[Rfam]
RNA sequence: AGACAAAAAAUGCCGAAUCUCGGAGCAUCGAAAGCUCUGGUACGGGGGACUUCUUUAUUUGGGGUGAAUGAGCGCUGCUAGCUGAGCGUACUAGGGAAAACCUCUUCCCGAACCCGUCAACUAACCUCGGAGGCGUCAAGGAGGCAAGGC
Dot-bracket structure: ..........((((....((..................))..(((((....(........)(((.....(.(((((........))))).)..((((........))))...))).........)))))..))))...............
This 150-nucleotide RNA sequence from Paenibacillus silvestris belongs to the Rfam family "c-di-AMP riboswitch aptamer (ydaO/yuaA leader)". About the family: This family represents a conserved RNA structure found upstream of the ydaO and yuaA genes in Bacillus subtilis and related genes in other bacteria. The ydaO/yuaA element is thought to act as a genetic 'off' switch for the ydaO and yuaA genes in its native state. Taxonomically the source falls in Paenibacillus (Bacteria, Bacillati, Bacilli, Caryophanales). Gene Ontology terms of the family: cyclic-di-AMP binding and regulation of gene expression.